[Rfam]
RNA: Makes More Granules Regulator RNA (mmgR)
RNA sequence: AGAAAAGGCCUUUCAGGCAUCCUCUCCUAGAAACUUUCAGGGCUGGCCUUCGGACCAGCCCUUUUUUUAUUCGUCC
Dot-bracket structure: .......((((...)))).....................(((((((.(....).)))))))...............